A member of the RNA family "KDPG-aldolase RNA" from Serratia sp. FGI94, 78 nucleotides long. The family's consensus secondary structure is taken from published work. The family's RNA type in Rfam is small RNA. NCBI's taxonomy places the organism under Bacteria, Pseudomonadati, Gammaproteobacteria, Yersiniaceae, Serratia.
RNA sequence: GGUACGGCCGGACUUUUCAGACCCUGGUCUGAAAGCCCUGUGGCAGGGGCGUGCCAUACACUAACCUCAAUGUGGAGA
Numbered sequence: 001g002g003u004a005c006g007g008c009c010g011g012a013c014u015u016u017u018c019a020g021a022c023c024c025u026g027g028u029c030u031g032a033a034a035g036c037c038c039u040g041u042g043g044c045a046g047g048g049g050c051g052u053g054c055c056a057u058a059c060a061c062u063a064a065c066c067u068c069a070a071u072g073u074g075g076a077g078a
Stems, first nucleotide, its partner, number of pairs: 001055006014035007